Overview:
Rfam assigns this 90-nucleotide RNA from Glycine soja to the family "Small nucleolar RNA snoR27". The organism belongs to Glycine subgen. Soja, within Eukaryota. The match comes from Rfam's covariance-model search (85 bits).

RNA sequence: AAUGGAUCGGUGAUGUUAAUUUUAAACUGCGUUAUCUAUCUGAAAUUUCCUAAAGAAUUUGAAGAUAACCAUAAUCUGCUGAGAUCCAUU
Numbered sequence: 001a002a003u004g005g006a007u008c009g010g011u012g013a014u015g016u017u018a019a020u021u022u023u024a025a026a027c028u029g030c031g032u033u034a035u036c037u038a039u040c041u042g043a044a045a046u047u048u049c050c051u052a053a054a055g056a057a058u059u060u061g062a063a064g065a066u067a068a069c070c071a072u073a074a075u076c077u078g079c080u081g082a083g084a085u086c087c088a089u090u
Stems, first nucleotide, its partner, number of pairs: 001090007
Dot-bracket structure: (((((((............................................................................)))))))